[Rfam]
RNA sequence: AAAGGAAGCAUCCAAAGGGAUCGCAUUGAUCCCAACUUAUCUAUAUCCUUCAAUUUCUUCUACGUAAUUUUGGAUCAUGCUAUCCCUUCGGAUGCCUCCUU
Numbered sequence: 001a002a003a004g005g006a007a008g009c010a011u012c013c014a015a016a017g018g019g020a021u022c023g024c025a026u027u028g029a030u031c032c033c034a035a036c037u038u039a040u041c042u043a044u045a046u047c048c049u050u051c052a053a054u055u056u057c058u059u060c061u062a063c064g065u066a067a068u069u070u071u072g073g074a075u076c077a078u079g080c081u082a083u084c085c086c087u088u089c090g091g092a093u094g095c096c097u098c099c100u101u
Stems, first nucleotide, its partner, number of pairs: 002101005008095006015088007023080004028076005
RNA: mir-393 microRNA precursor family
Organism: Cucurbita maxima